Notes:
This 130-nucleotide RNA sequence from Acipenser ruthenus belongs to the Rfam family "Small nucleolar RNA SNORA31". Rfam 15.1 lists 2,094 matches to the family in 626 species. Rfam links the family to the GO terms nucleolus and RNA processing.
[Rfam]
RNA sequence: CUGCAUCUUUUGACAUACCUGAAGCAAAUCACGUGUUCUUGGGUUUUAAAUAAUGAUGCAAGAUGAAUGUCCUCGCGCUUUCUGUGUGCUUUGUCUCGUAGCAGCUCAGAUUGAAUAGGGGAGUACAUUU
Numbered sequence: 001c002u003g004c005a006u007c008u009u010u011u012g013a014c015a016u017a018c019c020u021g022a023a024g025c026a027a028a029u030c031a032c033g034u035g036u037u038c039u040u041g042g043g044u045u046u047u048a049a050a051u052a053a054u055g056a057u058g059c060a061a062g063a064u065g066a067a068u069g070u071c072c073u074c075g076c077g078c079u080u081u082c083u084g085u086g087u088g089c090u091u092u093g094u095c096u097c098g099u100a101g102c103a104g105c106u107c108a109g110a111u112u113g114a115a116u117a118g119g120g121g122a123g124u125a126c127a128u129u130u
Base pairs, nucleotide, nucleotide: 002060003059004058005057006056007055011050015046017044018043019042023037024036025035026034070122071121072120073119074118078113081110082109083108084107087103088102089101090100
The family's consensus secondary structure was predicted with RNAalifold.